[Rfam]
Nucleotides: 060
Stems, first nucleotide, its partner, number of pairs: 008028008032053008
Number, partner (000 for none) and nucleotide at each position: 001000c002000g003000u004000c005000u006000c007000c008028u009027c010026c011025a012024u013023g014022u015021c016000u017000c018000c019000c020000u021015g022014a023013u024012a025011u026010g027009g028008a029000u030000u031000a032053a033052g034051c035050c036049c037048g038047c039046c040000c041000g042000c043000u044000g045000a046039g047038g048037c049036g050035g051034g052033c053032u054000u055000u056000u057000u058000u059000u060000c